[Rfam]
RNA sequence: GUCGGACGUGGCGAUGGAACCCGCCUGGGACCGAUGUCAGAUGGCCCCGAACCGCCGUCCGGCUGAUGGUCCCUGCACGUCA
Numbered sequence: 001g002u003c004g005g006a007c008g009u010g011g012c013g014a015u016g017g018a019a020c021c022c023g024c025c026u027g028g029g030a031c032c033g034a035u036g037u038c039a040g041a042u043g044g045c046c047c048c049g050a051a052c053c054g055c056c057g058u059c060c061g062g063c064u065g066a067u068g069g070u071c072c073c074u075g076c077a078c079g080u081c082a
Stems, first nucleotide, its partner, number of pairs: 010025004016073002019070003054063003